[Rfam]
Overview: The family of this 94-nucleotide sequence from Canis lupus is "mir-8799 microRNA precursor family". The family has 7 seed sequences and 20,638 matches in Rfam 15.1. Pairs were carried over by alignment from the consensus structure, which was predicted with RNAalifold. The family is grouped with related families in Rfam's "mir-8791 microRNA precursor clan". Lineage of the source: Eukaryota > Opisthokonta > Boreoeutheria > Canidae > Canis lupus.
RNA sequence: GAGGGAGCACCGGAUCCUGGGCUGUGUCCCCCGGCGCCCUGGGCUCCGGGGCCUGCACCGCUGAAAUCACGCUCCUGGAGCCCCGCAGCCCCCU
Numbered sequence: 001g002a003g004g005g006a007g008c009a010c011c012g013g014a015u016c017c018u019g020g021g022c023u024g025u026g027u028c029c030c031c032c033g034g035c036g037c038c039c040u041g042g043g044c045u046c047c048g049g050g051g052c053c054u055g056c057a058c059c060g061c062u063g064a065a066a067u068c069a070c071g072c073u074c075c076u077g078g079a080g081c082c083c084c085g086c087a088g089c090c091c092c093c094u
Base pairs, nucleotide, nucleotide: 001093003091004090005089010085012082013081016078017077019075020074021073023071024070025069026068027065031063032060033059034058036056037055041053043052044051045050